TPP riboswitch aptamer (THI element): a 95-nucleotide RNA sequence from Halalkalibaculum roseum. NCBI's taxonomy places the organism under Bacteria, Balneolota, Balneolales, Balneolaceae, Halalkalibaculum. Rfam's curators write: Vitamin B(1) in its active form thiamin pyrophosphate (TPP) is an essential coenzyme that is synthesised by coupling of pyrimidine and thiazole moieties in bacteria. The previously detected thiamin-regulatory element, thi box was extended, resulting in a new, highly conserved RNA secondary structure, the THI element, which is widely distributed in eubacteria and also occurs in some archaea. Analysis of operon structures identified a large number of new candidate thiamin-regulated genes, mostly transporters, in various prokaryotic organisms.
RNA sequence: ACCCAAGGUUGGGGGUGCUUGCAAAGCGGGCUGAGAUCAUACCCUAAGAACCUGAACCGGCUAACACCGGCGUAGGGAAACCUGAUGCAUUUCUG
Numbered sequence: 001a002c003c004c005a006a007g008g009u010u011g012g013g014g015g016u017g018c019u020u021g022c023a024a025a026g027c028g029g030g031c032u033g034a035g036a037u038c039a040u041a042c043c044c045u046a047a048g049a050a051c052c053u054g055a056a057c058c059g060g061c062u063a064a065c066a067c068c069g070g071c072g073u074a075g076g077g078a079a080a081c082c083u084g085a086u087g088c089a090u091u092u093c094u095g
Base pairs, nucleotide, nucleotide: 006083007082008081009080010079011045012044013043014042016039017031018030019029020028021027051076052075053074054073057070058069059068060067